[Rfam]
RNA sequence: UUAUUUGCGCAGUGGCAGUGUCGUAGCUGAUGAGGUUAAUCUGAGGCAUGAUUAUUGCUAAUUGAAGGUUUAUUUUGGUCAGGGCUUGUCACAGGUUGACCUGCCUAUGACCAACAAGGGAAAUGGUUUU
Numbered sequence: 001u002u003a004u005u006u007g008c009g010c011a012g013u014g015g016c017a018g019u020g021u022c023g024u025a026g027c028u029g030a031u032g033a034g035g036u037u038a039a040u041c042u043g044a045g046g047c048a049u050g051a052u053u054a055u056u057g058c059u060a061a062u063u064g065a066a067g068g069u070u071u072a073u074u075u076u077g078g079u080c081a082g083g084g085c086u087u088g089u090c091a092c093a094g095g096u097u098g099a100c101c102u103g104c105c106u107a108u109g110a111c112c113a114a115c116a117a118g119g120g121a122a123a124u125g126g127u128u129u130u
Base pairs, nucleotide, nucleotide: 020052021051022050023049024048026047027046028045034042035041084115086113088111089110090109091108093106094105095104096103

A member of the RNA family "U4 spliceosomal RNA" from Alligator sinensis, 130 nucleotides long. Taxonomically the source falls in Alligator (Eukaryota, Deuterostomia, Sarcopterygii, Sauria). The family's consensus secondary structure is taken from published work. It is annotated as a spliceosomal small nuclear RNA. From the family's description: U4 small nuclear RNA (U4 snRNA) is a component of the major U2-dependent spliceosome.